[Rfam]
RNA sequence: GGCCUAAAGCGUCCGUAGCCGGCCACGAAGGUUCAUCGGGAAAUCCGCCAGCUCAACUGGCGGGCGUCCGGUGAAAACCACGUGGCUUGGGACCGGAAGGCUCGAGGGGUACGUCCGGGGUAGGAGUGAAAUCCCGUAAUCCUGGACGGACCACCGAUGGCGAAAGCACCUCGAGAAGACGGAUCCGACGGUGAGGGACGAAAGCUAGGGUCUCGAACCGGAUUAGAUACCCGGGUAGUCCUAGCUGUAAACGAUGCUCGCUAGGUGUGACACAGGCUACGAGCCUGUGUUGUGCCGUAGGGAAGCCGAGAAGCGAGCCGCCUGGGAAGUACGUCCGCAAGGAUGAAACUUAAAGGAAU
Numbered sequence: 001g002g003c004c005u006a007a008a009g010c011g012u013c014c015g016u017a018g019c020c021g022g023c024c025a026c027g028a029a030g031g032u033u034c035a036u037c038g039g040g041a042a043a044u045c046c047g048c049c050a051g052c053u054c055a056a057c058u059g060g061c062g063g064g065c066g067u068c069c070g071g072u073g074a075a076a077a078c079c080a081c082g083u084g085g086c087u088u089g090g091g092a093c094c095g096g097a098a099g100g101c102u103c104g105a106g107g108g109g110u111a112c113g114u115c116c117g118g119g120g121u122a123g124g125a126g127u128g129a130a131a132u133c134c135c136g137u138a139a140u141c142c143u144g145g146a147c148g149g150a151c152c153a154c155c156g157a158u159g160g161c162g163a164a165a166g167c168a169c170c171u172c173g174a175g176a177a178g179a180c181g182g183a184u185c186c187g188a189c190g191g192u193g194a195g196g197g198a199c200g201a202a203a204g205c206u207a208g209g210g211u212c213u214c215g216a217a218c219c220g221g222a223u224u225a226g227a228u229a230c231c232c233g234g235g236u237a238g239u240c241c242u243a244g245c246u247g248u249a250a251a252c253g254a255u256g257c258u259c260g261c262u263a264g265g266u267g268u269g270a271c272a273c274a275g276g277c278u279a280c281g282a283g284c285c286u287g288u289g290u291u292g293u294g295c296c297g298u299a300g301g302g303a304a305g306c307c308g309a310g311a312a313g314c315g316a317g318c319c320g321c322c323u324g325g326g327a328a329g330u331a332c333g334u335c336c337g338c339a340a341g342g343a344u345g346a347a348a349c350u351u352a353a354a355g356g357a358a359u
Base pairs, nucleotide, nucleotide: 001322002321003320009319011199012198013197014196016193018192019191020190022086023085024084025083026082027081030079031078032075033074034073035072036071037070038069039068040067045063046062047061048060049059050058051057090186091185092184093182094181095180101175102174103173104172105171106170107169108152109151112148113147114146115145116144117143118142119141123134124133125132160167161166204245205244206243207242208241209240214238218234219233220232221231256318257317258316259315260314261313264296265295266294267293268292269291270290271289272288273287274286275285276284277283300307301306324351325350326349333344334343335342336341

About this RNA:
This 359-nucleotide part of an RNA belongs to the Rfam family "Archaeal small subunit ribosomal RNA". Rfam links the family to the GO terms structural constituent of ribosome and ribosome. A reference for the family is Yusupov et al. (2001), "Crystal structure of the ribosome at 5.5 A resolution", Science. The family's consensus secondary structure is taken from published work.